[Rfam]
RNA sequence: GGCUGGUCCGAGUGUAGUGGUGUUUACACCUAAUUGAUCACAACCAGUUACAGAUUCCUUUGUUCUUUCUCCACUCCCACCGCCUCACUUGCCUAAGCUAAA
Number, nucleotide and partner (000 for none) at each position: 001g000002g098003c097004u095005g094006g093007u000008c091009c000010g090011a089012g000013u000014g086015u000016a000017g080018u079019g078020g077021u000022g076023u000024u000025u000026a000027c000028a000029c000030c000031u000032a064033a063034u062035u000036g060037a059038u000039c000040a000041c000042a000043a000044c000045c000046a000047g000048u000049u000050a000051c000052a000053g000054a000055u000056u000057c000058c000059u037060u036061u000062g034063u033064u032065c000066u000067u000068u000069c000070u000071c000072c000073a000074c000075u000076c022077c020078c019079a018080c017081c000082g000083c000084c000085u000086c014087a000088c000089u011090u010091g008092c000093c006094u005095a004096a000097g003098c002099u000100a000101a000102a000